[Rfam]
RNA sequence: UGGAACAAUGUAGGCAAGGGAAGUCGGCAAAACGGAUCCGUAACUUCGGGAAAAGGAUUGGCUCUGAGGGUUGGGCUCGGGGGUCCCGGCCCCGAACCCGUCGGCUGCUGGCGGAAUGCUCGACCUGCUCGCGCGGCGAGAGCGGGCCGCCGCGUGCCGGCCGGGGGACGGACCGGGAACGGCCCCCUCGGGGGCCUUCCCCGGCGUCGAACAACCGACUCAGAACUGGAACGGACAAGGGGAAUCCGACUGUUUAAUUAAAAUGAAGCAUUGCGACGGUCCUCGAGGAUGCUGACGCAAUGUGAUUUCUGCCCAGUGCUCUGAAUGUCAAAGUGAAGAAAUUCAACCAAGCGCGGGUAAACGGCGGGAGUAACUAUGACUCUCUUAAGGUAGCCAAAUGCCUCGUCAUCUAAUUAGUGACGCGCAUGAAUGGAUUAACGAGAUUCCCACUGUCCCUGUCUACUAUCCAGCGAAACCACAACCAAGGGAACGGGCUUGGCGGAA
Numbered sequence: 001u002g003g004a005a006c007a008a009u010g011u012a013g014g015c016a017a018g019g020g021a022a023g024u025c026g027g028c029a030a031a032a033c034g035g036a037u038c039c040g041u042a043a044c045u046u047c048g049g050g051a052a053a054a055g056g057a058u059u060g061g062c063u064c065u066g067a068g069g070g071u072u073g074g075g076c077u078c079g080g081g082g083g084u085c086c087c088g089g090c091c092c093c094g095a096a097c098c099c100g101u102c103g104g105c106u107g108c109u110g111g112c113g114g115a116a117u118g119c120u121c122g123a124c125c126u127g128c129u130c131g132c133g134c135g136g137c138g139a140g141a142g143c144g145g146g147c148c149g150c151c152g153c154g155u156g157c158c159g160g161c162c163g164g165g166g167g168a169c170g171g172a173c174c175g176g177g178a179a180c181g182g183c184c185c186c187c188u189c190g191g192g193g194g195c196c197u198u199c200c201c202c203g204g205c206g207u208c209g210a211a212c213a214a215c216c217g218a219c220u221c222a223g224a225a226c227u228g229g230a231a232c233g234g235a236c237a238a239g240g241g242g243a244a245u246c247c248g249a250c251u252g253u254u255u256a257a258u259u260a261a262a263a264u265g266a267a268g269c270a271u272u273g274c275g276a277c278g279g280u281c282c283u284c285g286a287g288g289a290u291g292c293u294g295a296c297g298c299a300a301u302g303u304g305a306u307u308u309c310u311g312c313c314c315a316g317u318g319c320u321c322u323g324a325a326u327g328u329c330a331a332a333g334u335g336a337a338g339a340a341a342u343u344c345a346a347c348c349a350a351g352c353g354c355g356g357g358u359a360a361a362c363g364g365c366g367g368g369a370g371u372a373a374c375u376a377u378g379a380c381u382c383u384c385u386u387a388a389g390g391u392a393g394c395c396a397a398a399u400g401c402c403u404c405g406u407c408a409u410c411u412a413a414u415u416a417g418u419g420a421c422g423c424g425c426a427u428g429a430a431u432g433g434a435u436u437a438a439c440g441a442g443a444u445u446c447c448c449a450c451u452g453u454c455c456c457u458g459u460c461u462a463c464u465a466u467c468c469a470g471c472g473a474a475a476c477c478a479c480a481a482c483c484a485a486g487g488g489a490a491c492g493g494g495c496u497u498g499g500c501g502g503a504a
Base pairs, nucleotide, nucleotide: 001469002468003467004466010463011462012461013460014459015458016457018455019454020453035059036058037057038056039055044049060227061226063224064223065222066221067220068219228232240448241447242446243445244444245443246442247440248439251265252264253263268303269302270301271300272299273298274297275296276293279290280289281288282287307434308433309432311365312364313363316362317361318358319357321356322355323354326353327352328351334345335344336343337342366384367383368382369381370380371379385389405421406420407419408418409417482499483498484497485496486495